The record is a 108-nucleotide RNA sequence from Capra hircus, which matches "mir-1260b microRNA precursor family" in Rfam. Lineage of the source: Eukaryota > Metazoa > Eumetazoa > Ruminantia > Capra. A search with the family's covariance model found it, with a score of 85 bits.
Nucleotides: 108
Base pairs, nucleotide, nucleotide: 007106010103011102012101013100016096017095018094022093023092024091025090027088028087029084030083031082032081034079035078037076038075040073041072042071043070044069045068053067055065056064057063058062
Number, partner (000 for none) and nucleotide at each position: 001000g002000u003000u004000g005000c006000u007106g008000g009000g010103g011102c012101u013100c014000g015000c016096c017095g018094u019000c020000g021000a022093u023092c024091c025090c026000a027088c028087c029084g030083c031082u032081g033000c034079c035078a036000c037076c038075a039000c040073u041072g042071c043070u044069g045068c046000u047000a048000c049000u050000g051000c052000u053067c054000c055065g056064c057063a058062g059000g060000u061000g062058c063057u064056g065055c066000u067053g068045g069044u070043g071042g072041u073040g074000a075038u076037g077000a078035u079034g080000g081032u082031a083030g084029u085000c086000c087028g088027g089000c090025g091024g092023g093022g094018g095017c096016g097000c098000u099000g100013g101012g102011g103010c104000c105000g106007c107000g108000g
Annotation
The family's consensus secondary structure was predicted with RNAalifold. Rfam links the family to the GO terms RISC complex and miRNA-mediated post-transcriptional gene silencing.